[Rfam]
RNA sequence: GCUGUCCACGGCGUGAAACGGGGAACACGUGUACCGGACCGGCAGCUACGCUGGCCGGGUGCGCCUCCGUAGGCGGGGGCGCAAAGCCGACAGCCGUCGCAACCAGGGAGCACCUCCAUG
Numbered sequence: 001g002c003u004g005u006c007c008a009c010g011g012c013g014u015g016a017a018a019c020g021g022g023g024a025a026c027a028c029g030u031g032u033a034c035c036g037g038a039c040c041g042g043c044a045g046c047u048a049c050g051c052u053g054g055c056c057g058g059g060u061g062c063g064c065c066u067c068c069g070u071a072g073g074c075g076g077g078g079g080c081g082c083a084a085a086g087c088c089g090a091c092a093g094c095c096g097u098c099g100c101a102a103c104c105a106g107g108g109a110g111c112a113c114c115u116c117c118a119u120g
Stems, first nucleotide, its partner, number of pairs: 060083004065078004086100002089098003
RNA: Streptomyces-metH RNA
Organism: Streptomyces lydicus